[Rfam]
RNA sequence: AAAAAGGGCGCUCGUCUUGCACGUCCUCCUUUUGGGGUCCAACCCCGCGUGCAGACGCAUUGCGGUGGCCACGUUCACCUUGCAUAAAUUAGAAGUUUGAUGCUCAGCGCUCAAACUCCUACUUUAUUCGAGCGGCCUGGACACUCCAGUGGGGUAUGGCUUUGCAUAUCCAGCGUAUAAUUUUUGUAAAGCGAGAUUCGUGCAGCCUAAAAUGCAUUGCUCUUU
Numbered sequence: 001a002a003a004a005a006g007g008g009c010g011c012u013c014g015u016c017u018u019g020c021a022c023g024u025c026c027u028c029c030u031u032u033u034g035g036g037g038u039c040c041a042a043c044c045c046c047g048c049g050u051g052c053a054g055a056c057g058c059a060u061u062g063c064g065g066u067g068g069c070c071a072c073g074u075u076c077a078c079c080u081u082g083c084a085u086a087a088a089u090u091a092g093a094a095g096u097u098u099g100a101u102g103c104u105c106a107g108c109g110c111u112c113a114a115a116c117u118c119c120u121a122c123u124u125u126a127u128u129c130g131a132g133c134g135g136c137c138u139g140g141a142c143a144c145u146c147c148a149g150u151g152g153g154g155u156a157u158g159g160c161u162u163u164g165c166a167u168a169u170c171c172a173g174c175g176u177a178u179a180a181u182u183u184u185u186g187u188a189a190a191g192c193g194a195g196a197u198u199c200g201u202g203c204a205g206c207c208u209a210a211a212a213u214g215c216a217u218u219g220c221u222c223u224u225u
Stems, first nucleotide, its partner, number of pairs: 008176005013057005058151005064145004069140003152171007194223003199219002205215002208212001

Rfam assigns this 225-nucleotide RNA sequence from Ceratitis capitata to the family "U11 spliceosomal RNA". It is annotated as a spliceosomal small nuclear RNA. It scores 53 bits against the family's covariance model. For this family Rfam cites "Evolution of spliceosomal snRNA genes in metazoan animals" (Marz et al., J Mol Evol, 2008).